[Rfam]
RNA: small nucleolar RNA snoR114
RNA sequence: GAGCUGUGACGAAACUGUGUCUGUGAUGGAUAGGUCUAUCACACUCCUAUGAUCUUAUCAGACGAACUAUGAUACUCCAGAGCUC
Numbered sequence: 001g002a003g004c005u006g007u008g009a010c011g012a013a014a015c016u017g018u019g020u021c022u023g024u025g026a027u028g029g030a031u032a033g034g035u036c037u038a039u040c041a042c043a044c045u046c047c048u049a050u051g052a053u054c055u056u057a058u059c060a061g062a063c064g065a066a067c068u069a070u071g072a073u074a075c076u077c078c079a080g081a082g083c084u085c
Stems, first nucleotide, its partner, number of pairs: 001085004